[Rfam]
RNA sequence: AUACUUACCUGGACGGGGUCGAUGGGCGAUCAACAAGGCCCAUGGCCUGGGCCCGCGACCUCCAUUGCACUAGGGAGGGGCGCUGGUCUACCAUCUCCCCAAGUGGGAGAGUGGACGUCGUAAUUUGUGGCAGCGGGGGUACGCGUUCGCGCGGCCCCAA
Number, nucleotide and partner (000 for none) at each position: 001a000002u000003a000004c000005u000006u000007a000008c000009c000010u000011g000012g119013a118014c117015g116016g048017g047018g046019u045020c044021g043022a000023u042024g041025g040026g039027c038028g000029a000030u000031c000032a000033a000034c000035a000036a000037g000038g027039c026040c025041c024042a023043u021044g020045g019046c018047c017048u016049g089050g088051g087052c000053c086054c000055g083056c082057g081058a000059c079060c078061u077062c075063c074064a000065u000066u000067g000068c000069a000070c000071u000072a000073g000074g063075g062076a000077g061078g060079g059080g000081c057082g056083c055084u000085g000086g053087u051088c050089u049090a000091c114092c113093a112094u110095c109096u108097c000098c106099c105100c000101a000102a000103g000104u000105g099106g098107g000108a096109g095110a094111g000112u093113g092114g091115a000116c015117g014118u013119c012120g000121u000122a000123a000124u000125u000126u000127g000128u000129g000130g000131c000132a000133g000134c000135g000136g158137g157138g156139g155140u000141a000142c153143g152144c151145g150146u000147u000148c000149g000150c145151g144152c143153g142154g000155c139156c138157c137158c136159a000160a000

A member of the RNA family "U1 spliceosomal RNA" from Musa acuminata, 160 nucleotides long. It is annotated as a spliceosomal small nuclear RNA. U1 is a small nuclear RNA (snRNA) component of the spliceosome (involved in pre-mRNA splicing). The literature on the family includes a 1994 paper in Nature by Oubridge et al., "Crystal structure at 1.92 A resolution of the RNA-binding domain of the U1A spliceosomal protein complexed with an RNA hairpin".